[Rfam]
Nucleotides: 267
Stems, first nucleotide, its partner, number of pairs: 004256006016162003035119004062108001064106002067103001069101002166178005
Number, partner (000 for none) and nucleotide at each position: 001000c002000g003000c004256u005255g006254g007253c008252c009251g010000a011000g012000a013000c014000a015000u016162c017161a018160c019000a020000g021000a022000c023000u024000a025000a026000u027000c028000g029000a030000c031000u032000u033000g034000g035119g036118g037117g038116g039000a040000u041000u042000u043000u044000u045000g046000u047000g048000a049000g050000u051000g052000u053000g054000a055000g056000g057000g058000g059000u060000a061000a062108g063000c064106g065105c066000c067103g068000a069101g070100g071000c072000c073000u074000c075000u076000u077000u078000c079000c080000g081000g082000a083000c084000c085000u086000g087000c088000u089000c090000u091000u092000c093000g094000c095000c096000u097000u098000a099000u100070c101069u102000g103067c104000u105065g106064c107000u108062c109000c110000u111000g112000c113000u114000g115000a116038c117037c118036c119035c120000g121000g122000g123000c124000c125000g126000u127000g128000u129000a130000c131000c132000u133000u134000c135000a136000g137000a138000u139000c140000a141000g142000u143000a144000a145000u146000c147000u148000c149000g150000g151000u152000g153000c154000g155000c156000u157000c158000g159000g160018g161017u162016g163000c164000u165000g166178c167177g168176g169175c170174c171000u172000g173000u174170g175169g176168c177167u178166g179000g180000a181000u182000u183000g184000c185000c186000u187000g188000u189000g190000a191000c192000g193000u194000c195000c196000c197000g198000c199000c200000u201000g202000c203000c204000u205000g206000c207000u208000g209000a210000c211000g212000g213000a214000c215000u216000g217000g218000c219000c220000u221000a222000c223000g224000g225000c226000g227000c228000c229000g230000g231000c232000a233000a234000g235000a236000u237000g238000a239000a240000g241000c242000u243000g244000u245000c246000c247000c248000u249000g250000g251009u252008g253007g254006c255005u256004g257000c258000g259000g260000u261000g262000c263000u264000g265000c266000u267000g
The record is a 267-nucleotide sequence from Ursus americanus, which matches "bip internal ribosome entry site (IRES)" in Rfam. The family has 9 seed sequences and 234 matches in Rfam 15.1. This family represents the bip internal ribosome entry site (IRES). BiP protein expression has been found to be significantly enhanced by the heat shock response due to IRES-dependent translation. It is thought that this translational mechanism is essential for the survival of cells under stress. A reference for the family is Kim and Jang (2002), "Continuous heat shock enhances translational initiation directed by internal ribosomal entry site", Biochem Biophys Res Commun.